[Rfam]
RNA sequence: GCUGGCAUAUAUGAUGACCGAACUUUUUUCCCCAACAGAUCGACCAUGUUGAUCUAACUCCUAAGCCAGUUUCUGUCUGAUAUGCCAGU
Number, nucleotide and partner (000 for none) at each position: 001g089002c088003u087004g086005g085006c084007a083008u082009a081010u000011a000012u000013g000014a000015u000016g000017a000018c000019c000020g000021a000022a000023c000024u000025u000026u000027u000028u000029u000030c000031c000032c000033c000034a000035a000036c000037a000038g000039a000040u000041c000042g000043a000044c000045c000046a000047u000048g000049u000050u000051g000052a000053u000054c000055u000056a000057a000058c000059u000060c000061c000062u000063a000064a000065g000066c000067c000068a000069g000070u000071u000072u000073c000074u000075g000076u000077c000078u000079g000080a000081u009082a008083u007084g006085c005086c004087a003088g002089u001
RNA: Small nucleolar SNORD12/SNORD106